[Rfam]
RNA sequence: GCUGAUGAUGCUACAAACAUUUGGACGUGCAGAUGGCUCCAGGAUCCUGUUUAGAGGAUGAACCUACCUGGAGGCGCCUUACCCACAUGACAUUCAUGGGCAAUUCUGAGGU
Numbered sequence: 001g002c003u004g005a006u007g008a009u010g011c012u013a014c015a016a017a018c019a020u021u022u023g024g025a026c027g028u029g030c031a032g033a034u035g036g037c038u039c040c041a042g043g044a045u046c047c048u049g050u051u052u053a054g055a056g057g058a059u060g061a062a063c064c065u066a067c068c069u070g071g072a073g074g075c076g077c078c079u080u081a082c083c084c085a086c087a088u089g090a091c092a093u094u095c096a097u098g099g100g101c102a103a104u105u106c107u108g109a110g111g112u
Stems, first nucleotide, its partner, number of pairs: 001112003045058004
A member of the RNA family "Small nucleolar RNA Z278" from Hordeum vulgare, 112 nucleotides long. Pairs were carried over by alignment from the consensus structure, which was predicted with PFOLD. Rfam describes the family as follows. snoZ278 is a C/D box small nucleolar RNA. Its methylation guide targets have not been reported. It is annotated as a C/D-box small nucleolar RNA. Its family is annotated with RNA processing and nucleolus in the Gene Ontology. The source organism's lineage runs through Eukaryota, Magnoliopsida, Triticodae, Triticeae and Hordeum vulgare. The family has 7 seed sequences and 1,130 matches in Rfam 15.1.